[Rfam]
RNA: mir-156 microRNA precursor family
Nucleotides: 087
Base pairs, nucleotide, nucleotide: 001087002086003085004084005083006082007081008080010077011076012075013074014073016071017070018069019068020067021066023064024063
Number, partner (000 for none) and nucleotide at each position: 001087g002086u003085g004084a005083c006082a007081g008080a009000a010077g011076a012075g013074a014073g015000c016071g017070a018069g019068c020067a021066c022000a023064c024063a025000u026000g027000g028000u029000u030000a031000u032000u033000u034000c035000u036000u037000c038000c039000a040000u041000g042000g043000a044000a045000g046000a047000u048000c049000c050000a051000u052000g053000c054000u055000u056000g057000a058000a059000g060000c061000u062000c063024u064023g065000c066021g067020u068019g069018c070017u071016c072000c073014c074013u075012c076011u077010c078000u079000c080008u081007c082006u083005g084004u085003c086002a087001c